[Rfam]
RNA sequence: CUGCGGUGAUGAUCAUCUUAGGACACCUUUGGAUUAAAGAUGAAACUAAUCUGUUUAGUCUGAGCAGC
Numbered sequence: 001c002u003g004c005g006g007u008g009a010u011g012a013u014c015a016u017c018u019u020a021g022g023a024c025a026c027c028u029u030u031g032g033a034u035u036a037a038a039g040a041u042g043a044a045a046c047u048a049a050u051c052u053g054u055u056u057a058g059u060c061u062g063a064g065c066a067g068c
Stems, first nucleotide, its partner, number of pairs: 001067004
Shown here is a 68-nucleotide RNA sequence from Kryptolebias marmoratus, a member of the family "Small nucleolar RNA SNORD58".
The family has 33 seed sequences and 2,484 matches in Rfam 15.1.
The match comes from Rfam's covariance-model search (70 bits).
By type it is a C/D-box small nucleolar RNA.
Its family is annotated with RNA processing and nucleolus in the Gene Ontology.
About the family: snoRNA U58 is found in introns 1, 3 and 6 of the ribosomal protein RPL17 gene in humans.